[Rfam]
Nucleotides: 130
Base pairs, nucleotide, nucleotide: 002059003058004057005056006055007054008053009052010051020045021044022043023042024040025039026038027037028036071123073121074120075119089104090103091102092101
Number, partner (000 for none) and nucleotide at each position: 001000u002059g003058g004057a005056c006055a007054u008053u009052u010051a011000a012000u013000u014000u015000u016000g017000u018000u019000c020045a021044g022043u023042u024040u025039c026038u027037u028036c029000u030000u031000g032000a033000a034000a035000u036028g037027a038026a039025g040024a041000c042023a043022a044021c045020u046000c047000u048000u049000u050000g051010u052009a053008a054007a055006u056005g057004u058003c059002c060000u061000a062000g063000a064000g065000a066000a067000a068000u069000a070000c071123u072000g073121u074120a075119g076000c077000u078000u079000u080000c081000u082000g083000u084000u085000c086000a087000g088000c089104c090103u091102u092101u093000u094000u095000a096000a097000g098000u099000a100000a101092a102091a103090a104089g105000g106000a107000u108000g109000g110000a111000u112000c113000g114000u115000u116000c117000c118000a119075u120074u121073a122000a123071a124000a125000a126000a127000a128000a129000a130000a
Rfam assigns this 130-nucleotide RNA sequence from Dipodomys ordii to the family "Small Cajal body specific RNA 24". For this family Rfam cites "Cajal body-specific small nuclear RNAs: a novel class of 2'-O-methylation and pseudouridylation guide RNAs" (Darzacq et al., EMBO J, 2002). The family has 23 seed sequences and 689 matches in Rfam 15.1. Rfam links the family to the GO terms RNA processing, nucleolus and Cajal body. scaRNAs are a specific class of small nuclear RNAs which localise to the Cajal bodies and guide the modification of RNA polymerase II transcribed spliceosomal RNAs U1, U2, U4, U5 and U12.